[Rfam]
RNA sequence: GUUACCUUUAAUUAAGUCCUGUGAGGCUGAAAGGUGGCGCAUGAGAGUAUAAGAGUAUACAUAUUUAAGUAUAUGUAUUUAAAAUAUGCUAUGUAUUCUAGCUUCUUGCCGUCAUCUGGCAAGAAGCUUUUUUGGU
Numbered sequence: 001g002u003u004a005c006c007u008u009u010a011a012u013u014a015a016g017u018c019c020u021g022u023g024a025g026g027c028u029g030a031a032a033g034g035u036g037g038c039g040c041a042u043g044a045g046a047g048u049a050u051a052a053g054a055g056u057a058u059a060c061a062u063a064u065u066u067a068a069g070u071a072u073a074u075g076u077a078u079u080u081a082a083a084a085u086a087u088g089c090u091a092u093g094u095a096u097u098c099u100a101g102c103u104u105c106u107u108g109c110c111g112u113c114a115u116c117u118g119g120c121a122a123g124a125a126g127c128u129u130u131u132u133u134g135g136u
Base pairs, nucleotide, nucleotide: 003036004035005034006033007032008031009030013029015028016027017026018025064084065083066082067080068079069078070077071076100128101127102126103125104124105123106122107121108120109119110118
RNA: PyrR binding site